[Rfam]
RNA: mir-16 microRNA precursor family
RNA sequence: GGCACCUUAUAGACUAAUAGAAGUAUUGGAGCCACGAAAGCUUAUGCUCCAAUACUUCUGUUAGUCUAUAAGGUGCC
Dot-bracket structure: (((.(((..(((((((((.(.((((((((...................)))))))))..))))))))..)))).)))